The record is a 50-nucleotide RNA from Dongia mobilis, which matches "Guanidine-II riboswitch aptamer (mini-ykkC)" in Rfam. Gene Ontology term of the family: regulation of gene expression. Simpler in structure and has fewer highly conserved nucleotide positions than the ykkC-yxkD leader. Despite this each of its two stem-loop structures directly bind free guanidine. Therefore, mini-ykkC RNA motif represents a distinct class of guanidine-sensing RNAs. Lineage of the source: Bacteria > Pseudomonadati > Rhodospirillales > Dongiaceae > Dongia. It scores 39 bits against the family's covariance model. The base pairs follow the family's consensus structure, which is taken from published work.
RNA sequence: GCCCCGGGACGACCCGGCGGCCAGCGUCAUGCAAACCGGGGACGACCCCG
Number, nucleotide and partner (000 for none) at each position: 001g022002c000003c020004c019005c016006g015007g014008g013009a000010c000011g000012a000013c008014c007015c006016g005017g000018c000019g004020g003021c000022c001023a000024g000025c000026g000027u000028c000029a000030u000031g000032c000033a000034a000035a000036c000037c050038g049039g048040g047041g046042a000043c000044g000045a000046c041047c040048c039049c038050g037